[Rfam]
RNA sequence: AGCAGAGUAGGAUAGGAAGCGUUAAGUAUCUUCUGAACGGGGAGUUGUCAGAAGGGCGAAAAGAUUUUCUUGCGAUUUCUUAUCCGCAUCCCGCUGUU
Numbered sequence: 001a002g003c004a005g006a007g008u009a010g011g012a013u014a015g016g017a018a019g020c021g022u023u024a025a026g027u028a029u030c031u032u033c034u035g036a037a038c039g040g041g042g043a044g045u046u047g048u049c050a051g052a053a054g055g056g057c058g059a060a061a062a063g064a065u066u067u068u069c070u071u072g073c074g075a076u077u078u079c080u081u082a083u084c085c086g087c088a089u090c091c092c093g094c095u096g097u098u
Stems, first nucleotide, its partner, number of pairs: 001098005010085010020074003026057002029055008040091003044087001061071004